[Rfam]
RNA sequence: ACCUAGGAUGAUUGCAUCCGCUUGUUUGAGGUGGAACUGAGACCCUGUUUUCAGGGAGAACCCCUCGAUGAAGCUACAUUUCAUAUGACAUCAAUGGAUUUAACUGAGGU
Numbered sequence: 001a002c003c004u005a006g007g008a009u010g011a012u013u014g015c016a017u018c019c020g021c022u023u024g025u026u027u028g029a030g031g032u033g034g035a036a037c038u039g040a041g042a043c044c045c046u047g048u049u050u051u052c053a054g055g056g057a058g059a060a061c062c063c064c065u066c067g068a069u070g071a072a073g074c075u076a077c078a079u080u081u082c083a084u085a086u087g088a089c090a091u092c093a094a095u096g097g098a099u100u101u102a103a104c105u106g107a108g109g110u
Stems, first nucleotide, its partner, number of pairs: 001110003043056005
Overview
Rfam assigns this 110-nucleotide sequence from Prunus dulcis to the family "Small nucleolar RNA Z278". Rfam's curators write: snoZ278 is a C/D box small nucleolar RNA. Its methylation guide targets have not been reported. The source organism's lineage runs through Eukaryota, Tracheophyta, eudicotyledons, Pentapetalae and Prunus. Rfam links the family to the GO terms nucleolus and RNA processing. The literature on the family includes a 2003 paper in Nucleic Acids Res by Chen et al., "The high diversity of snoRNAs in plants: identification and comparative study of 120 snoRNA genes from Oryza sativa".